TPP riboswitch aptamer (THI element): a 135-nucleotide sequence. Vitamin B(1) in its active form thiamin pyrophosphate (TPP) is an essential coenzyme that is synthesised by coupling of pyrimidine and thiazole moieties in bacteria.
RNA sequence: AUGAACAACUAGGGGUGCUCUGCGACAUCUCAUACUGAGGUAAGGGUCAGUGGGAUGUUGCAAAUGGGCUGAGAUCAUACCCUUGGAACCUGACCGGGAUAAUUCCUGCGUAAGGGAAAGUUGUAUAGAUUUGAU
Dot-bracket structure: .....(((((((((.(((((.............................................)))).......)..)))).....(((...((((......))))....)))...)))))............